Trypanosomatid snoRNA TB10Cs4H2: a 70-nucleotide sequence from Trypanosoma cruzi.
Rfam's curators put it in the seed alignment.
The literature on the family includes a 2005 paper in RNA by Liang et al., "A genome-wide analysis of C/D and H/ACA-like small nucleolar RNAs in Trypanosoma brucei reveals a trypanosome-specific pattern of rRNA modification".
Rfam links the family to the GO terms nucleolus and RNA processing.
The source organism's lineage runs through Eukaryota, Euglenozoa, Metakinetoplastina, Trypanosomatidae and Schizotrypanum.

RNA sequence: ACGCCUUUGUCUAACACCCCGCACCGCGAGCACUAUUUCCCGGCGGGGUGAUUUCAGAGGGCGGAGAUUC
Numbered sequence: 001a002c003g004c005c006u007u008u009g010u011c012u013a014a015c016a017c018c019c020c021g022c023a024c025c026g027c028g029a030g031c032a033c034u035a036u037u038u039c040c041c042g043g044c045g046g047g048g049u050g051a052u053u054u055c056a057g058a059g060g061g062c063g064g065a066g067a068u069u070c
Base pairs, nucleotide, nucleotide: 002063003062004061005060006059007058008057015050016049017048018047019046020045021044022043